[Rfam]
RNA sequence: GUAUAAUAAGCUCACCCAUAAAAUCCUGCGUGACUGCUUGCAGGCAAAGCAGGAUUUCUAUGAGGGGAGCAAACAGACAUGAGCAAGAAGGACGAUAGCCCGGAUUGCGAAUGUCUGUGACGAUUUCGAGAGUGCGUAGCACGAAGAAAUCGUGUUAUUAU
Numbered sequence: 001g002u003a004u005a006a007u008a009a010g011c012u013c014a015c016c017c018a019u020a021a022a023a024u025c026c027u028g029c030g031u032g033a034c035u036g037c038u039u040g041c042a043g044g045c046a047a048a049g050c051a052g053g054a055u056u057u058c059u060a061u062g063a064g065g066g067g068a069g070c071a072a073a074c075a076g077a078c079a080u081g082a083g084c085a086a087g088a089a090g091g092a093c094g095a096u097a098g099c100c101c102g103g104a105u106u107g108c109g110a111a112u113g114u115c116u117g118u119g120a121c122g123a124u125u126u127c128g129a130g131a132g133u134g135c136g137u138a139g140c141a142c143g144a145a146g147a148a149a150u151c152g153u154g155u156u157a158u159u160a161u
Base pairs, nucleotide, nucleotide: 001161002160003158004157005156006155007154011067012066017062018061019060020059021057022056023055024054025053026052027051028050029049032045034043035042036041073118074117075116076115077114078113079112080111083108084107085106086105090101091100093098121152122151123150124149125148126147127146132142133141134140135139
This 161-nucleotide sequence belongs to the Rfam family "Clostridiales-1 RNA". It is annotated as a small RNA. The base pairs follow the family's consensus structure, which is taken from published work.